[Rfam]
Annotation: A member of the RNA family "mir-252 microRNA precursor family" from Candidula unifasciata, 73 nucleotides long. Pairs were carried over by alignment from the consensus structure, which was predicted with RNAalifold. A reference for the family is Li et al. (2009), "Direct sequencing and expression analysis of a large number of miRNAs in Aedes aegypti and a multi-species survey of novel mosquito miRNAs", BMC Genomics. Gene Ontology terms of the family: miRNA-mediated post-transcriptional gene silencing and RISC complex.
RNA sequence: ACCCAUUUCUAAGUACUGGUGCCGCGGGAUUGUUUCCUUGGAGCUCCAGCGGUUCCGGUGCUUAACAUAGGGU
Numbered sequence: 001a002c003c004c005a006u007u008u009c010u011a012a013g014u015a016c017u018g019g020u021g022c023c024g025c026g027g028g029a030u031u032g033u034u035u036c037c038u039u040g041g042a043g044c045u046c047c048a049g050c051g052g053u054u055c056c057g058g059u060g061c062u063u064a065a066c067a068u069a070g071g072g073u
Stems, first nucleotide, its partner, number of pairs: 001073004007067001010064010024050002027047003